Shown here is a 305-nucleotide RNA from Skermania sp. ID1734, a member of the family "Mycobacterium smegmatis small RNA 1". The organism belongs to Skermania, within Bacteria.
RNA sequence: ACGGAUGAACGGAAGGCCAGGAUCGCCACCGGAAGAGAAGGGACGAUCUCCCGACCGGGAUUCCCAGCACGGGCACCAGGCACCCACGCGAAGCAUAAGCCACUAUAAGGGCAAAAGUGUUGUGGGCCUGCGUGAUUCGGAUGUUCGUUGGUGAGGGCCUCGCGCAGGUCGCGGGGAUGACCCACCGAGAUCCGAACCCCACGCCGAGGCCAGUCACACAACCCACUUUGCACGCUUGGUAACCAGGUAGUCCGUGCUAGCGGGCGGCGAAGUCGAUCAGUCGGCAGCGCCGCCCGCUUCGCAUG
Dot-bracket structure: ..((.(...((...((...((..((.(.((.........))).))..)).))...))..)..)).((((((((..((.((...(((.(((..((....(((........)))......(((((((((((((((..((((((...(((..(((.(...(((((((.....))))))).).)))...)))..))))))....))))..))))).....)))))).......)).))).)))...)).))...)))))))).((((((((((..(((........)))..))))))))))........
Notes: On this family, see Hnilicova et al., Nucleic Acids Res 2014: "Ms1, a novel sRNA interacting with the RNA polymerase core in mycobacteria". About the family: Mycobacterium smegmatis small RNA 1 is highly expressed during stationary phase of growth. Ms1 RNA directly interacts with RNA polymerase (RNAP), but in a different way than 6S, which is present in other bacteria. Rfam links the family to the GO term RNA polymerase binding. The base pairs follow the family's consensus structure, which was predicted with CMfinder.